A member of the RNA family "msiK RNA" from Corynebacterium uterequi, 58 nucleotides long. Lineage of the source: Bacteria > Actinomycetota > Mycobacteriales > Corynebacteriaceae > Corynebacterium. It scores 47 bits against the family's covariance model.
RNA sequence: ACGGUUCAUCCUUCACUCGGAUCGUUCGGCACGUUCCUGCCGAUGAAGAAAGGUUCAC
Number, nucleotide and partner (000 for none) at each position: 001a000002c000003g000004g000005u000006u000007c000008a000009u050010c000011c048012u047013u046014c045015a044016c000017u000018c000019g000020g000021a000022u000023c000024g000025u000026u043027c042028g041029g040030c039031a038032c000033g000034u000035u000036c000037c000038u031039g030040c029041c028042g027043a026044u015045g014046a013047a012048g011049a000050a009051a000052g000053g000054u000055u000056c000057a000058c000